[Rfam]
RNA sequence: GGGACAGUGAUGUAACCUUUGCCUUGUCUCUAGAGAGGUGUUGUCUUAAAUGUCUUGCACAAUAGAGUUACGCUGAGGACC
Numbered sequence: 001g002g003g004a005c006a007g008u009g010a011u012g013u014a015a016c017c018u019u020u021g022c023c024u025u026g027u028c029u030c031u032a033g034a035g036a037g038g039u040g041u042u043g044u045c046u047u048a049a050a051u052g053u054c055u056u057g058c059a060c061a062a063u064a065g066a067g068u069u070a071c072g073c074u075g076a077g078g079a080c081c
Stems, first nucleotide, its partner, number of pairs: 001081002005075002008072002
RNA: Small nucleolar RNA SNORD115
Organism: Carlito syrichta